Rfam assigns this 75-nucleotide RNA from Oceanibaculum pacificum to the family "Makes More Granules Regulator RNA (mmgR)". A search with the family's covariance model found it, with a score of 57 bits. The base pairs follow the family's consensus structure. The family's RNA type in Rfam is small RNA. Its Rfam clan is "suhB sRNA clan". Taxonomically the source falls in Oceanibaculum (Bacteria, Pseudomonadati, Pseudomonadota, Rhodospirillales).

[Rfam]
RNA sequence: GUCGUACGCACUUUUUGGGCGUUUCCUCCCUAAACUCGGGCCGCGCUUCGUGCGCGGCCCUUUUUUCUGCGCCCU
Numbered sequence: 001g002u003c004g005u006a007c008g009c010a011c012u013u014u015u016u017g018g019g020c021g022u023u024u025c026c027u028c029c030c031u032a033a034a035c036u037c038g039g040g041c042c043g044c045g046c047u048u049c050g051u052g053c054g055c056g057g058c059c060c061u062u063u064u065u066u067c068u069g070c071g072c073c074c075u
Base pairs, nucleotide, nucleotide: 008020009019011017038060039059040058041057042056043055044054045053046052